[Rfam]
RNA sequence: ACCGGACCCGCAUCGUGGGUGGCUUCUCCAGGCGCCCAUCCCCUGGCAACCA
Numbered sequence: 001a002c003c004g005g006a007c008c009c010g011c012a013u014c015g016u017g018g019g020u021g022g023c024u025u026c027u028c029c030a031g032g033c034g035c036c037c038a039u040c041c042c043c044u045g046g047c048a049a050c051c052a
Stems, first nucleotide, its partner, number of pairs: 006020006028046005
The family of this 52-nucleotide sequence from Borborobacter arsenicus is "sul1 RNA". The match comes from Rfam's covariance-model search (41 bits). The family has 54 seed sequences and 519 matches in Rfam 15.1.